Annotation
The record is a 109-nucleotide RNA sequence from Mycolicibacterium confluentis, which matches "Glycine riboswitch aptamer" in Rfam. NCBI's taxonomy places the organism under Bacteria, Bacillati, Actinomycetes, Mycobacteriaceae, Mycobacterium (subgen. Mycolicibacterium). It scores 39 bits against the family's covariance model. Its family is annotated with glycine biosynthetic process in the Gene Ontology.
RNA sequence: CGGUGCCUCUGGAAAGCGGCGAGUCCCCACCGGGACCGCCCGCCCAUGGGGAAAGGCGCACAGCCGAAUCUCUCAGGCGCCCGUUCGGGUGGACGACAGAGGGGGAGGG
Numbered sequence: 001c002g003g004u005g006c007c008u009c010u011g012g013a014a015a016g017c018g019g020c021g022a023g024u025c026c027c028c029a030c031c032g033g034g035a036c037c038g039c040c041c042g043c044c045c046a047u048g049g050g051g052a053a054a055g056g057c058g059c060a061c062a063g064c065c066g067a068a069u070c071u072c073u074c075a076g077g078c079g080c081c082c083g084u085u086c087g088g089g090u091g092g093a094c095g096a097c098a099g100a101g102g103g104g105g106a107g108g109g
Stems, first nucleotide, its partner, number of pairs: 004104001006102006018040004042078003046073001049072003055065002